[Rfam]
RNA sequence: UGAAUGAUGAUAAAAAAUAAUCGGAUUCCCAUUGAUAUUUUCAUACAUGAGAUUACAAUCAGCUACUUCUAAGUUCU
Numbered sequence: 001u002g003a004a005u006g007a008u009g010a011u012a013a014a015a016a017a018u019a020a021u022c023g024g025a026u027u028c029c030c031a032u033u034g035a036u037a038u039u040u041u042c043a044u045a046c047a048u049g050a051g052a053u054u055a056c057a058a059u060c061a062g063c064u065a066c067u068u069c070u071a072a073g074u075u076c077u
Base pairs, nucleotide, nucleotide: 002076003075004074005073
Rfam assigns this 77-nucleotide sequence from Trifolium subterraneum to the family "Small nucleolar RNA R12". For this family Rfam cites "The high diversity of snoRNAs in plants: identification and comparative study of 120 snoRNA genes from Oryza sativa" (Chen et al., Nucleic Acids Res, 2003). The base pairs follow the family's consensus structure, which was predicted with PFOLD. Rfam links the family to the GO terms RNA processing and nucleolus. The match comes from Rfam's covariance-model search (48 bits). Taxonomically the source falls in Trifolium (Eukaryota, Streptophyta, Magnoliopsida, Papilionoideae).